[Rfam]
The family of this 114-nucleotide RNA from Solobacterium moorei is "FMN riboswitch aptamer (RFN element)". The family's consensus secondary structure is taken from published work.
RNA sequence: GAUAAAACUCAGGGCAGGGUGCAAUUCCCGACCGGCGGUAUACCCCGCGAACCGAAAGGUUGAAUCGGUGCAAUUCCGAUGGCGACAGUAAAGUCUGGAUGGAAGAGUAAAAGU
Numbered sequence: 001g002a003u004a005a006a007a008c009u010c011a012g013g014g015c016a017g018g019g020u021g022c023a024a025u026u027c028c029c030g031a032c033c034g035g036c037g038g039u040a041u042a043c044c045c046c047g048c049g050a051a052c053c054g055a056a057a058g059g060u061u062g063a064a065u066c067g068g069u070g071c072a073a074u075u076c077c078g079a080u081g082g083c084g085a086c087a088g089u090a091a092a093g094u095c096u097g098g099a100u101g102g103a104a105g106a107g108u109a110a111a112a113g114u
Base pairs, nucleotide, nucleotide: 003112007108008107009106010105017029018028019027031094032093033084034083035048036047037046038045043082044081051060052059053058064080065079066078067077068076086097087096088095